RNA sequence: ACUCGAGAGACGGACAGCCGGUGACGGCAGACGCUUCUCGAAGGCGUUUCGGGGAGGAAACGUCCGCUCCUUCAGAGAGCGAGAAGGCCCGCUGCGAUGUAUCCCCGCAGCGGGCUUUUUCAU
Number, nucleotide and partner (000 for none) at each position: 001a000002c000003u041004c040005g039006a038007g037008a036009g035010a000011c000012g000013g000014a000015c000016a000017g032018c000019c030020g000021g028022u000023g000024a000025c000026g000027g000028c021029a000030g019031a000032c017033g000034c000035u009036u008037c007038u006039c005040g004041a003042a000043g064044g063045c062046g061047u060048u059049u058050c057051g000052g000053g000054g000055a000056g000057g050058a049059a048060a047061c046062g045063u044064c043065c000066g000067c000068u000069c000070c000071u000072u000073c000074a000075g000076a000077g000078a000079g000080c000081g000082a120083g119084a118085a117086g116087g115088c114089c113090c112091g111092c110093u109094g108095c107096g106097a000098u000099g000100u000101a000102u000103c000104c000105c000106c096107g095108c094109a093110g092111c091112g090113g089114g088115c087116u086117u085118u084119u083120u082121c000122a000123u000

This 123-nucleotide RNA from Brevundimonas sp. belongs to the Rfam family "Caulobacter sRNA CrfA". It is annotated as a small RNA. The pairing is the family consensus, mapped onto this sequence. The source organism's lineage runs through Bacteria, Pseudomonadota, Caulobacterales, Caulobacteraceae and Brevundimonas.